[Rfam]
RNA sequence: GGCUGCUCUGAAGGUAAUGCGUUAUCUCACUUGAUUGCUCAUAGUCAGUUACAGAUUGAACUCCUCGUUCUACUACUUUCCCCUCUUCUCACUACUGCACUUGACUAGUCUAAA
Numbered sequence: 001g002g003c004u005g006c007u008c009u010g011a012a013g014g015u016a017a018u019g020c021g022u023u024a025u026c027u028c029a030c031u032u033g034a035u036u037g038c039u040c041a042u043a044g045u046c047a048g049u050u051a052c053a054g055a056u057u058g059a060a061c062u063c064c065u066c067g068u069u070c071u072a073c074u075a076c077u078u079u080c081c082c083c084u085c086u087u088c089u090c091a092c093u094a095c096u097g098c099a100c101u102u103g104a105c106u107a108g109u110c111u112a113a114a
Base pairs, nucleotide, nucleotide: 001110002109003108004107005106007104008103010102011101014098015097016093018091019090021088044074047071048070

About this RNA: The record is a 114-nucleotide sequence from Microcebus murinus, which matches "Y RNA" in Rfam. Rfam classes the family as a non-coding RNA gene. Pairs were carried over by alignment from the consensus structure, which is taken from published work. The match comes from Rfam's covariance-model search (50 bits).